The record is a 78-nucleotide sequence from Channa argus, which matches "mir-92 microRNA precursor family" in Rfam.
[Rfam]
RNA sequence: CUUUCUCAGCAGGUUGGGAGAGGUAGCAAUACUUUGCAUUUAUGUGGUAUUGCACUUGUCCCGGCCUGUUGAGGAUAU
Number, nucleotide and partner (000 for none) at each position: 001c000002u000003u000004u074005c073006u072007c000008a000009g069010c068011a067012g066013g065014u064015u000016g062017g061018g060019a059020g000021a000022g056023g055024u054025a000026g053027c052028a051029a050030u049031a048032c047033u046034u000035u000036g000037c000038a000039u000040u000041u000042a000043u000044g000045u000046g033047g032048u031049a030050u029051u028052g027053c026054a024055c023056u022057u000058g000059u019060c018061c017062c016063g000064g014065c013066c012067u011068g010069u009070u000071g000072a006073g005074g004075a000076u000077a000078u000

Background
Gene Ontology terms of the family: miRNA-mediated post-transcriptional gene silencing and RISC complex. A reference for the family is Mourelatos et al. (2002), "miRNPs: a novel class of ribonucleoproteins containing numerous microRNAs", Genes Dev. About the family: This family represents the microRNA precursor mir-92. It scores 76 bits against the family's covariance model. The organism belongs to Channa, within Eukaryota. Its Rfam clan is "mir-92 microRNA precursor clan".